[Rfam]
RNA: HNH endonuclease-associated RNA and ORF (HEARO) RNA
RNA sequence: GUCAGCAACCCGCACUCUCUGUGACAAGGCUACGCGCGGAGCGAAAGUUACGCGAAGUAAUGCCUCACUCCUAGCGUGAUAGUUGACCAGCCUAAGUGCCUUGUGUACUAAGUUUUUUGAGUCAUGACACCCUGUAGAUGCGUAGCUAGUCUCCGGCUCUGUCGUUAGUGGUUAAACAUCUUUAUCGGGUUAAGGAAGUGCUGCUAACCUAACAAGCUCUUAAAACCUUGGCAAAGCUAACUUUAC
Numbered sequence: 001g002u003c004a005g006c007a008a009c010c011c012g013c014a015c016u017c018u019c020u021g022u023g024a025c026a027a028g029g030c031u032a033c034g035c036g037c038g039g040a041g042c043g044a045a046a047g048u049u050a051c052g053c054g055a056a057g058u059a060a061u062g063c064c065u066c067a068c069u070c071c072u073a074g075c076g077u078g079a080u081a082g083u084u085g086a087c088c089a090g091c092c093u094a095a096g097u098g099c100c101u102u103g104u105g106u107a108c109u110a111a112g113u114u115u116u117u118u119g120a121g122u123c124a125u126g127a128c129a130c131c132c133u134g135u136a137g138a139u140g141c142g143u144a145g146c147u148a149g150u151c152u153c154c155g156g157c158u159c160u161g162u163c164g165u166u167a168g169u170g171g172u173u174a175a176a177c178a179u180c181u182u183u184a185u186c187g188g189g190u191u192a193a194g195g196a197a198g199u200g201c202u203g204c205u206a207a208c209c210u211a212a213c214a215a216g217c218u219c220u221u222a223a224a225a226c227c228u229u230g231g232c233a234a235a236g237c238u239a240a241c242u243u244u245a246c
Base pairs, nucleotide, nucleotide: 001087002086003085004084005083006082008080010034016029017028038051090232091231092230094228095109096108097107098106099105112226113225114224115223116222119219120218121217122216127162128161131156132155134153136152137151138150139149140242143239144238145237146236147235164208165207166206167205168204169203170202171201172200176199177198179196180195181194182193183192184191